[Rfam]
RNA: Purine riboswitch aptamer
RNA sequence: UUGAUUUUAAUUUAAUACUCAUGUAUAAGCUUGGAAAUAUGGUCCAAGCGUCUCUACCGACUGACCGAAAAUCACUGGACUACAUGUGUGGAAUGAACAGGA
Dot-bracket structure: .................(.((((((...(((((((.......)))))))........(.(.(((.......))).).)..)))))).)..............